[Rfam]
RNA: nhaA-I RNA
Organism: Sphingomonas aracearum
RNA sequence: GGGUGUCCGGACGUUUGAUCGGGCAGGUUGAAGCGCUGGUCGGGCCGCCAGCG
Numbered sequence: 001g002g003g004u005g006u007c008c009g010g011a012c013g014u015u016u017g018a019u020c021g022g023g024c025a026g027g028u029u030g031a032a033g034c035g036c037u038g039g040u041c042g043g044g045c046c047g048c049c050a051g052c053g
Stems, first nucleotide, its partner, number of pairs: 005024006012017001034053007